[Rfam]
Nucleotides: 109
Stems, first nucleotide, its partner, number of pairs: 010083005018029004035047004048108006057100010073089005
Number, partner (000 for none) and nucleotide at each position: 001000u002000a003000g004000c005000a006000a007000u008000a009000c010083g011082c012081g013080g014079c015000c016000u017000a018029g019028u020027c021026u022000g023000a024000a025000a026021a027020g028019a029018u030000g031000g032000a033000u034000a035047a036046u037045g038044u039000u040000u041000a042000g043000a044038g045037c046036a047035u048108u049107a050106a051105g052104u053103u054000u055000a056000g057100c058099c059098g060097g061096u062095g063094g064093g065092g066091c067000g068000g069000u070000u071000u072000c073089g074088g075087g076086a077085u078000u079014g080013c081012c082011g083010c084000c085077a086076u087075c088074c089073u090000a091066g092065u093064c094063c095062c096061a097060c098059c099058g100057g101000u102000u103053g104052g105051c106050u107049u108048a109000u
Rfam assigns this 109-nucleotide RNA sequence to the family "RT-12 RNA". Rfam classes the family as a small RNA. It is one of the family's seed sequences. The base pairs follow the family's consensus structure, which is taken from published work.